[Rfam]
RNA sequence: UCGACUGUACUUGCACAGGAUCACUGCUACAGUGAUUCCUCUUGCAUACAUGUCAUAAAACAGAUCUUCACAGCAUCUCUGAUGGUGUCGAUCUCUGCACUGAUAAGGAAUUUGCUGGAGCUUGCUCCCAGCUUGAUGAAAGCUAUCAGUGCAGACUUCUGAAGAGAU
Numbered sequence: 001u002c003g004a005c006u007g008u009a010c011u012u013g014c015a016c017a018g019g020a021u022c023a024c025u026g027c028u029a030c031a032g033u034g035a036u037u038c039c040u041c042u043u044g045c046a047u048a049c050a051u052g053u054c055a056u057a058a059a060a061c062a063g064a065u066c067u068u069c070a071c072a073g074c075a076u077c078u079c080u081g082a083u084g085g086u087g088u089c090g091a092u093c094u095c096u097g098c099a100c101u102g103a104u105a106a107g108g109a110a111u112u113u114g115c116u117g118g119a120g121c122u123u124g125c126u127c128c129c130a131g132c133u134u135g136a137u138g139a140a141a142g143c144u145a146u147c148a149g150u151g152c153a154g155a156c157u158u159c160u161g162a163a164g165a166g167a168u
Base pairs, nucleotide, nucleotide: 003039006035008034009033010032011031017028018027020025046067048065051062052061053060076167077166078165079164080163094155095154096153097152098151100149101148102147103146104145105144107128108127109126131143132142133141134140

The record is a 168-nucleotide sequence from Polarella glacialis, which matches "ACEA small nucleolar RNA U3" in Rfam. Lineage of the source: Eukaryota > Sar > Suessiales > Suessiaceae > Polarella. Its Rfam clan is "U3 clan". A reference for the family is Zwieb (1997), "The uRNA database", Nucleic Acids Res. The family's consensus secondary structure is taken from published work. The family's RNA type in Rfam is C/D-box small nucleolar RNA. A search with the family's covariance model found it, with a score of 64 bits. Small nucleolar RNAs (snoRNAs) are involved in the processing and modification of rRNA in the nucleolus. There are two main classes of snoRNAs: the box C/D class, and the box H/ACA class.